[Rfam]
The record is a 391-nucleotide sequence, which matches "Pestivirus internal ribosome entry site (IRES) including 5'UTR SLI" in Rfam. From the family's description: This family represents the internal ribosome entry site (IRES) of the the pestiviruses. The pestivirus IRES allows cap and end-independent translation of mRNA in the host cell. The IRES achieves this by mediating the internal initiation of translation by recruiting a ribosomal 43S pre-initiation complex directly to the initiation codon and eliminates the requirement for eIF4F. The classical swine virus UTR described in appears to be longer at the 5' end than other pestivirus UTRs. This family represents the conserved core. For this family Rfam cites "Ribosomal binding to the internal ribosomal entry site of classical swine fever virus" (Kolupaeva et al., RNA, 2000).
RNA sequence: UGCAUAACCCUGAUUGUAAUUGGCUGGGUUAUGCAUGUGAGAACGCAAAAUUUUUUAAAUUAUGUUACCGGCUUUGAGGUUGGCGGACCAGAGUUAACCAGGCUCUCAGUACGACACCCUCCUAAACAAAGUCGGAACUGCUGACUAGGAGACUAUGCACUCAGCACUAAGCCCGGAGUACCGGGCAUUCUACUACAGCUCUGCACUCAACGACGGCUCUUGAGGCCUAGAGUCCAGGAUGGCUGUGUAAGUAGAGGACAUGUCCAAGUGUGAGGUGUAAUCCGGUGGGGGUUGCCGGAUUUGCUACUGGUAGACCAGUAGUCAUAGACUGCCUGAUAGGGUCCCGGCGGACGGCCUAGGCUUAGCAGUAUAAUAGUCCGUUGUAUUCAAC
Numbered sequence: 001u002g003c004a005u006a007a008c009c010c011u012g013a014u015u016g017u018a019a020u021u022g023g024c025u026g027g028g029u030u031a032u033g034c035a036u037g038u039g040a041g042a043a044c045g046c047a048a049a050a051u052u053u054u055u056u057a058a059a060u061u062a063u064g065u066u067a068c069c070g071g072c073u074u075u076g077a078g079g080u081u082g083g084c085g086g087a088c089c090a091g092a093g094u095u096a097a098c099c100a101g102g103c104u105c106u107c108a109g110u111a112c113g114a115c116a117c118c119c120u121c122c123u124a125a126a127c128a129a130a131g132u133c134g135g136a137a138c139u140g141c142u143g144a145c146u147a148g149g150a151g152a153c154u155a156u157g158c159a160c161u162c163a164g165c166a167c168u169a170a171g172c173c174c175g176g177a178g179u180a181c182c183g184g185g186c187a188u189u190c191u192a193c194u195a196c197a198g199c200u201c202u203g204c205a206c207u208c209a210a211c212g213a214c215g216g217c218u219c220u221u222g223a224g225g226c227c228u229a230g231a232g233u234c235c236a237g238g239a240u241g242g243c244u245g246u247g248u249a250a251g252u253a254g255a256g257g258a259c260a261u262g263u264c265c266a267a268g269u270g271u272g273a274g275g276u277g278u279a280a281u282c283c284g285g286u287g288g289g290g291g292u293u294g295c296c297g298g299a300u301u302u303g304c305u306a307c308u309g310g311u312a313g314a315c316c317a318g319u320a321g322u323c324a325u326a327g328a329c330u331g332c333c334u335g336a337u338a339g340g341g342u343c344c345c346g347g348c349g350g351a352c353g354g355c356c357u358a359g360g361c362u363u364a365g366c367a368g369u370a371u372a373a374u375a376g377u378c379c380g381u382u383g384u385a386u387u388c389a390a391c
Stems, first nucleotide, its partner, number of pairs: 002034009068135006078119002081116002092104003137369006143361001145359005150330002153327005159276003164271004171186006189255005195246005200238004205233004210228001256265003279301010305320006331342004345383008